Shown here is a 115-nucleotide RNA from Trifolium medium, a member of the family "MIR2593 microRNA precursor family". Gene Ontology terms of the family: miRNA-mediated post-transcriptional gene silencing and RISC complex.
[Rfam]
RNA sequence: AUAUAAGCAAAAGUUAACGUUUUAGAUUCAUUGAAAACGUGAUGUAUCUGGUGUGUAAUAUAGACUAGAUACAUCACUUUUUCAAUGAAUCUAAAAAGUUAAUUUUUGCUUAUAU
Number, nucleotide and partner (000 for none) at each position: 001a000002u114003a113004u112005a111006a110007g109008c000009a107010a106011a105012a104013g103014u000015u101016a100017a099018c098019g000020u096021u095022u094023u093024a092025g091026a000027u089028u088029c087030a086031u085032u084033g083034a082035a081036a080037a079038c000039g077040u076041g075042a074043u073044g072045u000046a000047u000048c000049u067050g066051g065052u064053g000054u000055g000056u000057a000058a000059u000060a000061u000062a000063g000064a052065c051066u050067a049068g000069a000070u000071a000072c044073a043074u042075c041076a040077c039078u000079u037080u036081u035082u034083c033084a032085a031086u030087g029088a028089a027090u000091c025092u024093a023094a022095a021096a020097a000098g018099u017100u016101a015102a000103u013104u012105u011106u010107u009108g000109c007110u006111u005112a004113u003114a002115u000